[Rfam]
RNA: mir-148/mir-152 microRNA precursor family
RNA sequence: UCCAGACAAAGUUCUGUAAUUCACUCAGACUCUGAGUGCAUGUGCAGUCAGUGCAUUACAGAACUUUGCUUGGGG
Numbered sequence: 001u002c003c004a005g006a007c008a009a010a011g012u013u014c015u016g017u018a019a020u021u022c023a024c025u026c027a028g029a030c031u032c033u034g035a036g037u038g039c040a041u042g043u044g045c046a047g048u049c050a051g052u053g054c055a056u057u058a059c060a061g062a063a064c065u066u067u068g069c070u071u072g073g074g075g
Base pairs, nucleotide, nucleotide: 004071005070007068008067009066010065011064012063013062014061015060016059022053023052024051025050028049029048030047031046